The record is a 266-nucleotide RNA sequence from Thermotoga maritima, which matches "Bacterial large signal recognition particle RNA" in Rfam. Gene Ontology terms of the family: signal recognition particle, plasma membrane targeting and SRP-dependent cotranslational protein targeting to membrane, signal sequence recognition. From the family's description: The signal recognition particle (SRP) is a universally conserved ribonucleoprotein involved in the co-translational targeting of proteins to membranes. The source organism's lineage runs through Bacteria, Thermotogota, Thermotogales, Thermotogaceae and Thermotoga maritima. The match comes from Rfam's covariance-model search (193 bits). The family's RNA type in Rfam is non-coding RNA gene.
RNA sequence: CCACGCUAGGCGGGGGGCUGGCGGUCCCCUGUACCCGAAAUCCGCCGUACGCGGGGCCGAAUUCCCACCCGAGGCUCUUCGGGUCGGGAAACGGCGUGACUCGGGGGCGAUGAAGACCGGGUCCCACGCAACGGAACCCUGUGAACCUGGUCAGGCCCGGGAGGGAGCAGCCAUAAGCAGGUGUUUCCGUGUGCCGUGGGGGAGCCCGGUUGGAGCCUUCCGAUCAUGCACGCCCCGGUCCGGAGAAGUCGACGGUGGGUGCGUGG
Numbered sequence: 001c002c003a004c005g006c007u008a009g010g011c012g013g014g015g016g017g018c019u020g021g022c023g024g025u026c027c028c029c030u031g032u033a034c035c036c037g038a039a040a041u042c043c044g045c046c047g048u049a050c051g052c053g054g055g056g057c058c059g060a061a062u063u064c065c066c067a068c069c070c071g072a073g074g075c076u077c078u079u080c081g082g083g084u085c086g087g088g089a090a091a092c093g094g095c096g097u098g099a100c101u102c103g104g105g106g107g108c109g110a111u112g113a114a115g116a117c118c119g120g121g122u123c124c125c126a127c128g129c130a131a132c133g134g135a136a137c138c139c140u141g142u143g144a145a146c147c148u149g150g151u152c153a154g155g156c157c158c159g160g161g162a163g164g165g166a167g168c169a170g171c172c173a174u175a176a177g178c179a180g181g182u183g184u185u186u187c188c189g190u191g192u193g194c195c196g197u198g199g200g201g202g203a204g205c206c207c208g209g210u211u212g213g214a215g216c217c218u219u220c221c222g223a224u225c226a227u228g229c230a231c232g233c234c235c236c237g238g239u240c241c242g243g244a245g246a247a248g249u250c251g252a253c254g255g256u257g258g259g260u261g262c263g264u265g266g
Stems, first nucleotide, its partner, number of pairs: 001266006009058003012030008034055004064259006073250004079243010092232002094229006103221002106217003115211008123200006129191002132189005138181005148173004156165003
Dot-bracket structure: ((((((..(((((((((((...))))))))...((((..............))))))).....((((((...((((..((((((((((...((((((((...((.(((......((((((((((((((((.(((((.(((((.....((((....(((....)))....))))...)))))...)))))))...))))))...))))))))...)))..))..)))))).)).))))))))))...))))...)))))).))))))